The record is a 350-nucleotide sequence from Salvator merianae, which matches "7SK RNA" in Rfam.
[Rfam]
RNA sequence: GGAUGUGAGGGCAAACUGGCUGCAACAUCUGUCACCUCAUUGAUUGCCAGGGUUGAUUCGGCUAAUCUGGCUGGCUAGGCAGGUGUCCCCUUCAUCCCUCACCACCCUAUGUGUAUCCCUCCCAAAGCUGUGAGCUCAGUGAAAGAGGACGCCAUCCCAGAUCGAAGGAGUGUACCAUUCUUUGGUCAAGGGUAUACAAUAGUUGUGCAGCCCUGCUAGAACCUCCAAACAAGCUCAAGGUCCAUUUGUAGGAGACGUAGGGUAAUCAAGCUUCCAAGACUCCAGACACUACCAGAGUAGAGCAGAGACCGGCAUUGUAAGGCACUGCAUGUGGCAGUUUGCCAUUCUUU
Numbered sequence: 001g002g003a004u005g006u007g008a009g010g011g012c013a014a015a016c017u018g019g020c021u022g023c024a025a026c027a028u029c030u031g032u033c034a035c036c037u038c039a040u041u042g043a044u045u046g047c048c049a050g051g052g053u054u055g056a057u058u059c060g061g062c063u064a065a066u067c068u069g070g071c072u073g074g075c076u077a078g079g080c081a082g083g084u085g086u087c088c089c090c091u092u093c094a095u096c097c098c099u100c101a102c103c104a105c106c107c108u109a110u111g112u113g114u115a116u117c118c119c120u121c122c123c124a125a126a127g128c129u130g131u132g133a134g135c136u137c138a139g140u141g142a143a144a145g146a147g148g149a150c151g152c153c154a155u156c157c158c159a160g161a162u163c164g165a166a167g168g169a170g171u172g173u174a175c176c177a178u179u180c181u182u183u184g185g186u187c188a189a190g191g192g193u194a195u196a197c198a199a200u201a202g203u204u205g206u207g208c209a210g211c212c213c214u215g216c217u218a219g220a221a222c223c224u225c226c227a228a229a230c231a232a233g234c235u236c237a238a239g240g241u242c243c244a245u246u247u248g249u250a251g252g253a254g255a256c257g258u259a260g261g262g263u264a265a266u267c268a269a270g271c272u273u274c275c276a277a278g279a280c281u282c283c284a285g286a287c288a289c290u291a292c293c294a295g296a297g298u299a300g301a302g303c304a305g306a307g308a309c310c311g312g313c314a315u316u317g318u319a320a321g322g323c324a325c326u327g328c329a330u331g332u333g334g335c336a337g338u339u340u341g342c343c344a345u346u347c348u349u350u
Stems, first nucleotide, its partner, number of pairs: 001108002005102007014092001018090002025086009035074002037070003042067004046062003117172001118168003121164001122139001125136001127135002140161001147157003202271003211262006223254004229249005294350003319345001321343003324338005

The family's RNA type in Rfam is non-coding RNA gene. It scores 238 bits against the family's covariance model. 7SK was discovered as an abundant small nuclear RNA in the mid-70s but a possible function has only recently been suggested. Two independent studies have found that 7SK RNA binds the CDK9/cyclin T complex (known as elongation factor P-TEFb). P-TEFb activates transcription by phosphorylating the C-terminal domain of RNA polymerase II. This process is negatively regulated by the 7SK RNP. The secondary structure of 7SK RNA shown here was proposed by Wasserman and Steitz on the basis of chemical modification and enzymatic cleavage experiments. This family contains a number of annotated pseudogenes and 7SK derived repeats. The source organism's lineage runs through Eukaryota, Metazoa, Chordata, Teleostomi and Salvator. The family has 45 seed sequences and 49,373 matches in Rfam 15.1. A reference for the family is Wassarman and Steitz (1991), "Structural analyses of the 7SK ribonucleoprotein (RNP), the most abundant human small RNP of unknown function", Mol Cell Biol.